[Rfam]
RNA sequence: GUUAAAACAUUGAAAGAAAUAAGUAGUCCCCAUGGUUACAAUUCUAGAGAGUAGAUCGGCUGGUGAAAGAUCUAUAGUACAUGGUAAGAUGAAUUACAUUCUGGAGUUGUGAAGUUAAAAGCUUCGCCGGUUUCCAUCCGUUAUAAUGGAUUGAGGCAUCUAUUUGAUGUAAAUUAAGGUGGUACCACGGGUUAUCUCGUCCUUUAG
Numbered sequence: 001g002u003u004a005a006a007a008c009a010u011u012g013a014a015a016g017a018a019a020u021a022a023g024u025a026g027u028c029c030c031c032a033u034g035g036u037u038a039c040a041a042u043u044c045u046a047g048a049g050a051g052u053a054g055a056u057c058g059g060c061u062g063g064u065g066a067a068a069g070a071u072c073u074a075u076a077g078u079a080c081a082u083g084g085u086a087a088g089a090u091g092a093a094u095u096a097c098a099u100u101c102u103g104g105a106g107u108u109g110u111g112a113a114g115u116u117a118a119a120a121g122c123u124u125c126g127c128c129g130g131u132u133u134c135c136a137u138c139c140g141u142u143a144u145a146a147u148g149g150a151u152u153g154a155g156g157c158a159u160c161u162a163u164u165u166g167a168u169g170u171a172a173a174u175u176a177a178g179g180u181g182g183u184a185c186c187a188c189g190g191g192u193u194a195u196c197u198c199g200u201c202c203u204u205u206a207g
Stems, first nucleotide, its partner, number of pairs: 007107002015102004026090003040078001042076001051075006110126007128140003156170005176204004187200005

Notes:
The family of this 207-nucleotide RNA from Alkaliphilus sp. B6464 is "T-box leader". Lineage of the source: Bacteria > Bacillati > Clostridia > Peptostreptococcales > Alkaliphilus. A search with the family's covariance model found it, with a score of 119 bits. Uncharged tRNA acts as the effector for transcription antitermination of genes in the T-box leader family. T-boxes are found upstream of many aminoacyl-tRNA synthetase genes and some amino acid biosynthetic genes usually in Gram-positive bacteria. The anticodon of a specific tRNA base pairs to a specifier sequence within the T-box motif, and the NCCA acceptor tail of the tRNA base pairs to a conserved bulge in the T-box antiterminator hairpin.